[Rfam]
RNA: RpsF leader
Organism: Candidatus Photodesmus blepharonis
Nucleotides: 085
Stems, first nucleotide, its partner, number of pairs: 016078007023059006
Number, partner (000 for none) and nucleotide at each position: 001000g002000u003000c004000a005000u006000u007000c008000u009000u010000c011000a012000u013000u014000u015000a016078g017077u018076u019075c020074c021073u022072u023059g024058c025057u026056u027055c028054c029000u030000u031000u032000u033000u034000a035000a036000a037000a038000u039000g040000g041000c042000c043000g044000a045000u046000u047000u048000a049000g050000u051000u052000u053000u054028g055027g056026a057025a058024g059023c060000u061000a062000a063000a064000u065000a066000a067000c068000c069000c070000g071000u072022a073021a074020g075019g076018a077017g078016c079000a080000a081000a082000u083000a084000u085000g